[Rfam]
RNA sequence: GAGAGGGAGAGUGCGGCUGACGGUGACCAGUUCUGGUCGCUGAGGAAAGUCCCCCCACCUUUCAGGCGCGCAGCCUCGUGCAAGCGGGGAUGGCGAGAGUCAUGGCAAUGACACAGAAACGACACGUCCUGCCGCCAGCGAUGAAACGACCGAGCCCCACCAUCACUGAUGGUGGUGCGAUACCUAACUCGUUGAGCGUAACGGCAGGGAUCGAUGGAACGGUGAAUCCCUGCGGGUGCAAGCCAAACAGGGCAGAAGGGAUGCCUGGAUCCCGCCCGGGUACGGCGCUUAGCUGAAUGCCGCAAUGAACAGAAGGGGGCUUACUCCUCCCACUC
Numbered sequence: 001g002a003g004a005g006g007g008a009g010a011g012u013g014c015g016g017c018u019g020a021c022g023g024u025g026a027c028c029a030g031u032u033c034u035g036g037u038c039g040c041u042g043a044g045g046a047a048a049g050u051c052c053c054c055c056c057a058c059c060u061u062u063c064a065g066g067c068g069c070g071c072a073g074c075c076u077c078g079u080g081c082a083a084g085c086g087g088g089g090a091u092g093g094c095g096a097g098a099g100u101c102a103u104g105g106c107a108a109u110g111a112c113a114c115a116g117a118a119a120c121g122a123c124a125c126g127u128c129c130u131g132c133c134g135c136c137a138g139c140g141a142u143g144a145a146a147c148g149a150c151c152g153a154g155c156c157c158c159a160c161c162a163u164c165a166c167u168g169a170u171g172g173u174g175g176u177g178c179g180a181u182a183c184c185u186a187a188c189u190c191g192u193u194g195a196g197c198g199u200a201a202c203g204g205c206a207g208g209g210a211u212c213g214a215u216g217g218a219a220c221g222g223u224g225a226a227u228c229c230c231u232g233c234g235g236g237u238g239c240a241a242g243c244c245a246a247a248c249a250g251g252g253c254a255g256a257a258g259g260g261a262u263g264c265c266u267g268g269a270u271c272c273c274g275c276c277c278g279g280g281u282a283c284g285g286c287g288c289u290u291a292g293c294u295g296a297a298u299g300c301c302g303c304a305a306u307g308a309a310c311a312g313a314a315g316g317g318g319g320c321u322u323a324c325u326c327c328u329c330c331c332a333c334u335c
Base pairs, nucleotide, nucleotide: 001335002334003333005331006330007329008328009327010325011324012304013303014302015301016300017299021042022041023040024039025038026037027036028035047322048321049320051319052318053317054316055315056238057237058236059235061269062268063267064266065265066264069234070233071232072231073230074089075088076087077086078085090103091102092101093100094099104229105228109225111223112222125213126212128208129207130206131205132204133203134202146192147191148190149189242286243285244284250277251276252275253274